[Rfam]
This 263-nucleotide RNA sequence from Ifrita kowaldi belongs to the Rfam family "Small Cajal body specific RNA 6". By type it is a small Cajal body RNA. U88 is small Cajal body specific RNA (scaRNA). scaRNAs are a novel class of small nuclear RNAs which localise to the Cajal bodies. U88 is found associated with both fibrillarin and Gar1p and co-localises with coilin in Cajal bodies. Gene Ontology terms of the family: RNA processing and nucleolus. For this family Rfam cites "Cajal body-specific small nuclear RNAs: a novel class of 2'-O-methylation and pseudouridylation guide RNAs" (Darzacq et al., EMBO J, 2002). The match comes from Rfam's covariance-model search (117 bits).

RNA sequence: GGUCUGUGAUGAAUAGUAAAAGGUCUGAUUAUCCCAAGACUUGCAGUUCCAUGCCCUCUUCUCCCAGCAGUUUCUCCCCAGCCAUGGCACAGCAAUGGUGUGGCUGGCAGAGUCUUUGCUGACAGUGAGAGAUGUGCUCAGGUCAUGUUCACCUGGAGCAGCGGAGACAUGACUGGGAUCAGCAUCCAACAGUCCUGCUUGAAGGAGUUUGGGGUCUUGGAGUGGUCUAACUGUACAUGUGAUCUGACUUUUCUGCUGAGACC
Numbered sequence: 001g002g003u004c005u006g007u008g009a010u011g012a013a014u015a016g017u018a019a020a021a022g023g024u025c026u027g028a029u030u031a032u033c034c035c036a037a038g039a040c041u042u043g044c045a046g047u048u049c050c051a052u053g054c055c056c057u058c059u060u061c062u063c064c065c066a067g068c069a070g071u072u073u074c075u076c077c078c079c080a081g082c083c084a085u086g087g088c089a090c091a092g093c094a095a096u097g098g099u100g101u102g103g104c105u106g107g108c109a110g111a112g113u114c115u116u117u118g119c120u121g122a123c124a125g126u127g128a129g130a131g132a133u134g135u136g137c138u139c140a141g142g143u144c145a146u147g148u149u150c151a152c153c154u155g156g157a158g159c160a161g162c163g164g165a166g167a168c169a170u171g172a173c174u175g176g177g178a179u180c181a182g183c184a185u186c187c188a189a190c191a192g193u194c195c196u197g198c199u200u201g202a203a204g205g206a207g208u209u210u211g212g213g214g215u216c217u218u219g220g221a222g223u224g225g226u227c228u229a230a231c232u233g234u235a236c237a238u239g240u241g242a243u244c245u246g247a248c249u250u251u252u253c254u255g256c257u258g259a260g261a262c263c
Base pairs, nucleotide, nucleotide: 001263002262003261004260037245038244039243041241047222048221049220050219051218053216061207062206063205064204065121066120067119068118069117070116078107079106080105081104082103083102084101085100086099129187131186132185133184134183135182144171145170146169147168148167149166150164153161